[Rfam]
RNA: Group II catalytic intron D1-D4-2
RNA sequence: GAGGGUAGGUCCCUCGGGGUCGCCGUACAGGCGGAGGCUUCAAACCACCUACUGCUGCUGCGUUUAAGAGGCGUGGUAGUGAGCGAGCUAGGAAAAGGCCGGACUCGAUUUGG
Numbered sequence: 001g002a003g004g005g006u007a008g009g010u011c012c013c014u015c016g017g018g019g020u021c022g023c024c025g026u027a028c029a030g031g032c033g034g035a036g037g038c039u040u041c042a043a044a045c046c047a048c049c050u051a052c053u054g055c056u057g058c059u060g061c062g063u064u065u066a067a068g069a070g071g072c073g074u075g076g077u078a079g080u081g082a083g084c085g086a087g088c089u090a091g092g093a094a095a096a097g098g099c100c101g102g103a104c105u106c107g108a109u110u111u112g113g
Stems, first nucleotide, its partner, number of pairs: 001015005016041006023034004048092004053086001054080002057077003061073004099113004